[Rfam]
RNA sequence: UUUCACCGAGCCGAGCAGCAGCGGCCGCUCGCGCCCCUGACCGUACGUCGCGAGGAGCGCCUGGGCCUC
Numbered sequence: 001u002u003u004c005a006c007c008g009a010g011c012c013g014a015g016c017a018g019c020a021g022c023g024g025c026c027g028c029u030c031g032c033g034c035c036c037c038u039g040a041c042c043g044u045a046c047g048u049c050g051c052g053a054g055g056a057g058c059g060c061c062u063g064g065g066c067c068u069c
Base pairs, nucleotide, nucleotide: 015025016024028065029064030063032059033058037054038053041050043048
RNA: ASpks TB sRNA